A member of the RNA family "PyrR binding site" from Caldibacillus debilis, 130 nucleotides long. The family's RNA type in Rfam is cis-regulatory element. Taxonomically the source falls in Caldibacillus debilis (Bacteria, Bacillati, Bacillota, Caryophanales). This family represents the PyrR binding site and terminator structure. This RNA structure is found upstream of a variety of genes involved in pyrimidine biosynthesis and transport.

[Rfam]
RNA sequence: CAUACCUUUAAAACAGUCCCGCGAGGCUGGCAAGGUAAAUGAUAGAGAAAACGGAAAGGGCAUGAUGCGCCCCUUUUCCCUGAAAACGAAAGGAGCGCCUUGCCGUCAGAACGGCAGGGCGCUUUUUUGA
Numbered sequence: 001c002a003u004a005c006c007u008u009u010a011a012a013a014c015a016g017u018c019c020c021g022c023g024a025g026g027c028u029g030g031c032a033a034g035g036u037a038a039a040u041g042a043u044a045g046a047g048a049a050a051a052c053g054g055a056a057a058g059g060g061c062a063u064g065a066u067g068c069g070c071c072c073c074u075u076u077u078c079c080c081u082g083a084a085a086a087c088g089a090a091a092g093g094a095g096c097g098c099c100u101u102g103c104c105g106u107c108a109g110a111a112c113g114g115c116a117g118g119g120c121g122c123u124u125u126u127u128u129g130a
Stems, first nucleotide, its partner, number of pairs: 003037006014029005050081001053078008092125014